This 105-nucleotide sequence from Nicotiana attenuata belongs to the Rfam family "MIR6152 microRNA precursor family".
The family has 2 seed sequences and 5,807 matches in Rfam 15.1.
Taxonomically the source falls in Nicotiana (Eukaryota, Mesangiospermae, eudicotyledons, Pentapetalae).
Its family is annotated with RISC complex and miRNA-mediated post-transcriptional gene silencing in the Gene Ontology.
RNA sequence: UGGACAGAUUAUUGUAUUCGACUGUUUCGAUUGUAUUCAUGGCCUGAAACAGGAUAAUACAGUGUUUUUAAACAGAAAGUGAAUCAAUUAACAUAAUAGACUCCU
Numbered sequence: 001u002g003g004a005c006a007g008a009u010u011a012u013u014g015u016a017u018u019c020g021a022c023u024g025u026u027u028c029g030a031u032u033g034u035a036u037u038c039a040u041g042g043c044c045u046g047a048a049a050c051a052g053g054a055u056a057a058u059a060c061a062g063u064g065u066u067u068u069u070a071a072a073c074a075g076a077a078a079g080u081g082a083a084u085c086a087a088u089u090a091a092c093a094u095a096a097u098a099g100a101c102u103c104c105u
Stems, first nucleotide, its partner, number of pairs: 002104003009099007017091002020089002023086002035084006045072001046068006